[Rfam]
RNA: Clostridiales-2 RNA
RNA sequence: AAAAUUAAGGGGUUGUAGAGGAAGGAUUCCUCUGCCUCUUUGAAGGCGGGGGCUCAGCAACUUCGAUUGCGUCGAAGGGAAC
Numbered sequence: 001a002a003a004a005u006u007a008a009g010g011g012g013u014u015g016u017a018g019a020g021g022a023a024g025g026a027u028u029c030c031u032c033u034g035c036c037u038c039u040u041u042g043a044a045g046g047c048g049g050g051g052g053c054u055c056a057g058c059a060a061c062u063u064c065g066a067u068u069g070c071g072u073c074g075a076a077g078g079g080a081a082c
Stems, first nucleotide, its partner, number of pairs: 015035008057070004